[Rfam]
RNA sequence: CCCUCCCUGGCCCCAGUCAUGCACUAGUGGUUCCCUGUCUUUGGACAUGUAAGAAUUGGAGGUAAAGAAAUGUGGACUUGGAGAAGUCUGGAGCCAGCUUGCUCCCUACAGGCUCAAGAUCAACCAUCCCACAUAG
Numbered sequence: 001c002c003c004u005c006c007c008u009g010g011c012c013c014c015a016g017u018c019a020u021g022c023a024c025u026a027g028u029g030g031u032u033c034c035c036u037g038u039c040u041u042u043g044g045a046c047a048u049g050u051a052a053g054a055a056u057u058g059g060a061g062g063u064a065a066a067g068a069a070a071u072g073u074g075g076a077c078u079u080g081g082a083g084a085a086g087u088c089u090g091g092a093g094c095c096a097g098c099u100u101g102c103u104c105c106c107u108a109c110a111g112g113c114u115c116a117a118g119a120u121c122a123a124c125c126a127u128c129c130c131a132c133a134u135a136g
Base pairs, nucleotide, nucleotide: 002062003061004060005059006058018049019048020047021046024043029035030034074129075128076127078126096114097113098112099111100110101109
The record is a 136-nucleotide RNA from Myotis brandtii, which matches "Small nucleolar RNA SNORA38" in Rfam. Lineage of the source: Eukaryota > Deuterostomia > Gnathostomata > Dipnotetrapodomorpha > Myotis. A search with the family's covariance model found it, with a score of 115 bits. ACA38 is a member of the H/ACA class of snoRNA that guide the sites of modification of uridines to pseudouridines. The family's RNA type in Rfam is H/ACA-box small nucleolar RNA.